[Rfam]
The record is a 138-nucleotide RNA sequence from Digitaria exilis, which matches "Small nucleolar RNA snoR77" in Rfam.
The match comes from Rfam's covariance-model search (96 bits).
RNA sequence: AGGCAGCCCCUUUGUCCGAUGUCUAUGGCAAUGGAGGUGUUGCGUUUCUCGGAGAAUAAAUCUUUUGAUCUUCAGAUCAGCUGAGAGGGGAGACCAACUUCCCUCGCUGAGGCUGGUCUAGUAAGUCAUAAGGACAAA
Numbered sequence: 001a002g003g004c005a006g007c008c009c010c011u012u013u014g015u016c017c018g019a020u021g022u023c024u025a026u027g028g029c030a031a032u033g034g035a036g037g038u039g040u041u042g043c044g045u046u047u048c049u050c051g052g053a054g055a056a057u058a059a060a061u062c063u064u065u066u067g068a069u070c071u072u073c074a075g076a077u078c079a080g081c082u083g084a085g086a087g088g089g090g091a092g093a094c095c096a097a098c099u100u101c102c103c104u105c106g107c108u109g110a111g112g113c114u115g116g117u118c119u120a121g122u123a124a125g126u127c128a129u130a131a132g133g134a135c136a137a138a
Stems, first nucleotide, its partner, number of pairs: 002041004007037002009034002012031005062132003067127003074119005080113003085105007
By type it is an H/ACA-box small nucleolar RNA.